The record is a 128-nucleotide sequence from Labeo rohita, which matches "Small nucleolar RNA SNORA65" in Rfam. Clan: SNORA65 clan. By type it is an H/ACA-box small nucleolar RNA. Rfam's curators write: U65 belongs to the H/ACA class of snoRNAs which are thought to guide the sites of modification of uridines to pseudouridines. On this family, see Huttenhofer et al., EMBO J 2001: "RNomics: an experimental approach that identifies 201 candidates for novel, small, non-messenger RNAs in mouse". NCBI's taxonomy places the organism under Eukaryota, Actinopteri, Teleostei, Otophysi, Labeo.

[Rfam]
RNA sequence: CCCGCCACUGUGCUAGUCUGUCAAAGAGGACUGUGUACUGUCCAGAGGAGGCUAAUAAUAACCCAGCUUUAGGAAGCAGGAAUACUCAACUCAGUGGGUAAUCCUGUGCCAAAAAGUAUGGAACAUGU
Numbered sequence: 001c002c003c004g005c006c007a008c009u010g011u012g013c014u015a016g017u018c019u020g021u022c023a024a025a026g027a028g029g030a031c032u033g034u035g036u037a038c039u040g041u042c043c044a045g046a047g048g049a050g051g052c053u054a055a056u057a058a059u060a061a062c063c064c065a066g067c068u069u070u071a072g073g074a075a076g077c078a079g080g081a082a083u084a085c086u087c088a089a090c091u092c093a094g095u096g097g098g099u100a101a102u103c104c105u106g107u108g109c110c111a112a113a114a115a116g117u118a119u120g121g122a123a124c125a126u127g128u
Stems, first nucleotide, its partner, number of pairs: 005048002008045003018035001020031001021029002063121003067116004072110002077106005085098003